[Rfam]
RNA sequence: GGUCGUGCCUGAUAGAUCGGGAUACUCUACAUUAACAAAACAAAUCGGGAUCGUUUCCCUUGCCAAUGGCGGGCCACGAUUAUCCUCCACGAGGAGAGCAGCAAUGCCGGUGGAUUACAACAGCAGGGAGCCCCCACAUCGUGUGAAACAGGAGUUUUCACCAAAUCAUCGGCACGUACCCUUUC
Numbered sequence: 001g002g003u004c005g006u007g008c009c010u011g012a013u014a015g016a017u018c019g020g021g022a023u024a025c026u027c028u029a030c031a032u033u034a035a036c037a038a039a040a041c042a043a044a045u046c047g048g049g050a051u052c053g054u055u056u057c058c059c060u061u062g063c064c065a066a067u068g069g070c071g072g073g074c075c076a077c078g079a080u081u082a083u084c085c086u087c088c089a090c091g092a093g094g095a096g097a098g099c100a101g102c103a104a105u106g107c108c109g110g111u112g113g114a115u116u117a118c119a120a121c122a123g124c125a126g127g128g129a130g131c132c133c134c135c136a137c138a139u140c141g142u143g144u145g146a147a148a149c150a151g152g153a154g155u156u157u158u159c160a161c162c163a164a165a166u167c168a169u170c171g172g173c174a175c176g177u178a179c180c181c182u183u184u185c
Stems, first nucleotide, its partner, number of pairs: 053131003057128002060126004067119002074113004083095003098107003
RNA: Bacteroidales-1 6S-Bacteroidales RNA suggested